Record summary:
Rfam assigns this 92-nucleotide sequence from Muraenolepis orangiensis to the family "let-7 microRNA precursor family". Gene Ontology terms of the family: miRNA-mediated post-transcriptional gene silencing and RISC complex. Rfam's curators write: This family represents the microRNAs (miRNA) let-7 and mir-98. let-7 was identified from a study of developmental timing in C. elegans, and was later shown to be part of a much larger class of non-coding RNAs termed miRNAs.
[Rfam]
RNA sequence: GCCGGCUGAGGUAGUAGUUUGUGCUGUUGGUUUGGGUUGGUAUCACGUUACCCGUUGAUGGAGAUGACUGCGCAAUCUACUGCCUUGCCGGC
Numbered sequence: 001g002c003c004g005g006c007u008g009a010g011g012u013a014g015u016a017g018u019u020u021g022u023g024c025u026g027u028u029g030g031u032u033u034g035g036g037u038u039g040g041u042a043u044c045a046c047g048u049u050a051c052c053c054g055u056u057g058a059u060g061g062a063g064a065u066g067a068c069u070g071c072g073c074a075a076u077c078u079a080c081u082g083c084c085u086u087g088c089c090g091g092c
Stems, first nucleotide, its partner, number of pairs: 001092006008086010019075006026068002034053004056063001